The record is a 99-nucleotide sequence from Brassica rapa, which matches "MIR390 microRNA precursor family" in Rfam. The base pairs follow the family's consensus structure, which was predicted with WAR. The family has 16 seed sequences and 649 matches in Rfam 15.1. The literature on the family includes a 2005 paper in Nucleic Acids Res by Gustafson et al., "ASRP: the Arabidopsis Small RNA Project Database". NCBI's taxonomy places the organism under Eukaryota, Streptophytina, Pentapetalae, Brassiceae, Brassica.

[Rfam]
RNA sequence: GAGAAGAAUCUGUAAAGCUCAGGAGGGAUAGCGCCAUCAUAAUCUCAUUCACAUCGAUAUUUUUGGCGCUGUCCAUCCUGAGUUUCAUUGGCUCUCCUU
Numbered sequence: 001g002a003g004a005a006g007a008a009u010c011u012g013u014a015a016a017g018c019u020c021a022g023g024a025g026g027g028a029u030a031g032c033g034c035c036a037u038c039a040u041a042a043u044c045u046c047a048u049u050c051a052c053a054u055c056g057a058u059a060u061u062u063u064u065g066g067c068g069c070u071g072u073c074c075a076u077c078c079u080g081a082g083u084u085u086c087a088u089u090g091g092c093u094c095u096c097c098u099u
Stems, first nucleotide, its partner, number of pairs: 010090001016084009026074010